[Rfam]
RNA sequence: UUAUACCCGCAAAUUCACUCAAAUCUGUAAUAGGUUUGUCAUUCAACCCCAAAAAUCUAGUGCAAAUAUUACUUUCGCCAAUUAGGUAUAAUAAUGGUAAGCGGGACAAGACUCGACAUUUGAUACACUAUUUAUCAAUGGAUGUCUUUUUUCU
Numbered sequence: 001u002u003a004u005a006c007c008c009g010c011a012a013a014u015u016c017a018c019u020c021a022a023a024u025c026u027g028u029a030a031u032a033g034g035u036u037u038g039u040c041a042u043u044c045a046a047c048c049c050c051a052a053a054a055a056u057c058u059a060g061u062g063c064a065a066a067u068a069u070u071a072c073u074u075u076c077g078c079c080a081a082u083u084a085g086g087u088a089u090a091a092u093a094a095u096g097g098u099a100a101g102c103g104g105g106a107c108a109a110g111a112c113u114c115g116a117c118a119u120u121u122g123a124u125a126c127a128c129u130a131u132u133u134a135u136c137a138a139u140g141g142a143u144g145u146c147u148u149u150u151u152u153c154u
Stems, first nucleotide, its partner, number of pairs: 006105005020038007070088001072086003078097003082093001108148005113142002117140002120138006